RNA sequence: GAUGCUGUGACAAUCGGUUUUCAUCCUGAUCUCGGAGUUAAAGGCAUCUGAGAUCAUCAUGAAAACUAGUUGUCGCAAUGUG
Numbered sequence: 001g002a003u004g005c006u007g008u009g010a011c012a013a014u015c016g017g018u019u020u021u022c023a024u025c026c027u028g029a030u031c032u033c034g035g036a037g038u039u040a041a042a043g044g045c046a047u048c049u050g051a052g053a054u055c056a057u058c059a060u061g062a063a064a065a066c067u068a069g070u071u072g073u074c075g076c077a078a079u080g081u082g
Stems, first nucleotide, its partner, number of pairs: 009074004016067009027056006034049003037045002
A member of the RNA family "mir-81 microRNA precursor family" from Dictyocaulus viviparus, 82 nucleotides long. A search with the family's covariance model found it, with a score of 59 bits. Pairs were carried over by alignment from the consensus structure, which was predicted with RNAalifold. For this family Rfam cites "An abundant class of tiny RNAs with probable regulatory roles in Caenorhabditis elegans" (Lau et al., Science, 2001).